[Rfam]
RNA sequence: AGAGUCGGCCAGGCGGCCGCGUCACCCGGUCCCCGGGUGCCGAGGAACGUCCGGGCUCCGCAGGGCAGGGUGGUGGGUAACGCCCACCCGGGGUGACCCGCGGGACAGUGCCACAGAAAGCAGACCGCCCCCGCACUCGUGCGGGGGUAAGGGUGAAACGGUGGGGUAAGAGCCCACCAGCGCCACGGGUGACCGUGGCGGCUCGGCAAACCCCACCUGGAGCAAGACCAGACAGCAGGCGUUCGAGGGCGGCCCGUCCGAAGCCUGCGGGUAGGUCGCUGGAGGCGUGCGGCAACGUACGUCGUAGAUGGAUGGUCGCCACCGGCGGGAGACCGCCGGGACAGAACCCGGCGUAUCGGCCGACUCUUCCG
Number, nucleotide and partner (000 for none) at each position: 001a367002g366003a365004g364005u363006c362007g361008g360009c359010c358011a356012g320013g319014c318015g317016g316017c315018c314019g000020c042021g041022u000023c039024a038025c037026c036027c035028g034029g000030u000031c000032c000033c000034c028035g027036g026037g025038u024039g023040c000041c021042g020043a000044g000045g000046a000047a354048c353049g352050u000051c351052c350053g349054g348055g347056c222057u221058c220059c219060g000061c000062a000063g255064g254065g253066c252067a000068g218069g217070g216071u215072g214073g087074u086075g085076g084077g083078u000079a000080a000081c000082g000083c077084c076085c075086a074087c073088c102089c100090g099091g098092g097093g000094u000095g000096a000097c092098c091099c090100g089101c000102g088103g213104g212105a000106c000107a000108g211109u210110g207111c206112c205113a000114c000115a000116g000117a000118a000119a000120g000121c000122a000123g000124a000125c152126c151127g148128c147129c146130c145131c144132c143133g142134c141135a140136c000137u000138c000139g000140u135141g134142c133143g132144g131145g130146g129147g128148u127149a000150a000151g126152g125153g000154u000155g000156a000157a000158a000159c000160g178161g177162u176163g175164g174165g173166g000167u000168a000169a000170g000171a000172g000173c165174c164175c163176a162177c161178c160179a000180g202181c200182g199183c198184c197185a196186c195187g194188g193189g000190u000191g000192a000193c188194c187195g186196u185197g184198g183199c182200g181201g000202c180203u000204c000205g112206g111207c110208a000209a000210a109211c108212c104213c103214c072215a071216c070217c069218u068219g059220g058221a057222g056223c000224a000225a000226g277227a276228c275229c274230a000231g000232a000233c000234a000235g268236c267237a266238g265239g264240c263241g000242u000243u000244c000245g000246a000247g259248g258249g257250c256251g000252g066253c065254c064255c063256g250257u249258c248259c247260g000261a000262a000263g240264c239265c238266u237267g236268c235269g000270g000271g000272u000273a000274g229275g228276u227277c226278g000279c000280u000281g000282g000283a000284g303285g302286c301287g300288u299289g298290c297291g296292g000293c000294a000295a000296c291297g290298u289299a288300c287301g286302u285303c284304g000305u000306a000307g000308a000309u000310g000311g000312a000313u000314g018315g017316u016317c015318g014319c013320c012321a000322c000323c000324g000325g000326c000327g000328g000329g000330a000331g000332a000333c000334c000335g000336c000337c000338g000339g000340g000341a000342c000343a000344g000345a000346a000347c055348c054349c053350g052351g051352c049353g048354u047355a000356u011357c000358g010359g009360c008361c007362g006363a005364c004365u003366c002367u001368u000369c000370c000371g000
A member of the RNA family "Bacterial RNase P class A" from Actinomycetales bacterium JB111, 371 nucleotides long. Taxonomically the source falls in Actinomycetales (Bacteria, Bacillati, Actinomycetota, Actinomycetes). The match comes from Rfam's covariance-model search (302 bits).